The family of this 99-nucleotide RNA sequence from Cellvibrio sp. PSBB006 is "t44 RNA". Rfam classes the family as a small RNA. About the family: This family consists of a number of bacterial RNA genes of between 135 and 170 bases in length.
RNA sequence: GCUGUACUAACUUAACGUCACACAUAUACCGACACAUUGAACCUGGGUGCCCACAGCGCGAGCUAACGGGUUGGUUGAUGGGGUAUAUGGAGGCUUAAC
Dot-bracket structure: ......................((((((((....(((((.(((.....((((...............)))).)))))))).))))))))..........
Numbered sequence: 001g002c003u004g005u006a007c008u009a010a011c012u013u014a015a016c017g018u019c020a021c022a023c024a025u026a027u028a029c030c031g032a033c034a035c036a037u038u039g040a041a042c043c044u045g046g047g048u049g050c051c052c053a054c055a056g057c058g059c060g061a062g063c064u065a066a067c068g069g070g071u072u073g074g075u076u077g078a079u080g081g082g083g084u085a086u087a088u089g090g091a092g093g094c095u096u097a098a099c
Stems, first nucleotide, its partner, number of pairs: 023089008035080005041075003049071004